[Rfam]
RNA sequence: UCCGGCCUCAAUUCCGUAGUGCAUUGCAGUGUAGAACGUUUCAAGCACGACUGCAAGCAUUGUGGGAGUGAAGUCGUCCG
Dot-bracket structure: .....(.(((..(((((..(((.(((((((...................))))))))))..)))))..))).).......

Source information: Rfam assigns this 80-nucleotide RNA sequence from Anopheles stephensi to the family "mir-932 microRNA precursor family". Rfam links the family to the GO terms RISC complex and miRNA-mediated post-transcriptional gene silencing.